[Rfam]
RNA: Purine riboswitch aptamer
Organism: Paenibacillus sambharensis
Nucleotides: 100
Stems, first nucleotide, its partner, number of pairs: 019085007029049006058076006
Number, partner (000 for none) and nucleotide at each position: 001000u002000a003000u004000c005000a006000a007000a008000g009000g010000c011000a012000u013000g014000a015000a016000a017000a018000a019085a020084c021083u022082c023081g024080u025079a026000u027000a028000u029049c030048c031047u032046c033045a034044a035000u036000a037000a038000u039000a040000u041000g042000g043000u044034u045033u046032g047031a048030g049029g050000g051000u052000u053000u054000c055000u056000a057000c058076u059075a060074g061073g062072a063071g064000c065000c066000a067000a068000u069000a070000a071063u072062u073061c074060c075059u076058a077000a078000c079025u080024a081023c082022g083021a084020g085019u086000a087000u088000g089000g090000g091000a092000u093000c094000c095000g096000u097000g098000u099000a100000u